[Rfam]
RNA sequence: GAGUUCACGGCUGUGGCGAGCCUAAGGGGUUCAAGCCCCGAAGGCGUAGGGAAACCGACAAGCCCGUAGCCAGCCGCAUGGCUGGUGUGGGGCGGGGUCUGAAAGGGCCCGUAGUCACAGCCGUGAGACCAGAAACCGAGCGAUCUAGGCCGGGGCAGGGUGAAGCCCGGCGAAAGCCGGGUGGAGGCCCGAAGGGGUUCUGACGUGCAAUUCGUUCCCAUGACCUCGGCCUAGGGGCAAAAGACCAAUCAAGCUCGGUGAUAGCUGGUU
Dot-bracket structure: ....(((((((((((((..((((..((((......))))..))))...((....)).....((((...(((((((....)))))))...))))..((((......))))....)))))))))))))..((.(...((((((...((((((((((((.((((...(((((((....)))))))....))))...((((..(.((........))).))))..).))))))))))).((.......))......))))))......).))..

Rfam assigns this 270-nucleotide part of an RNA from Thermofilum pendens to the family "Archaeal large subunit ribosomal RNA".
The sequence is in the family's curated seed alignment.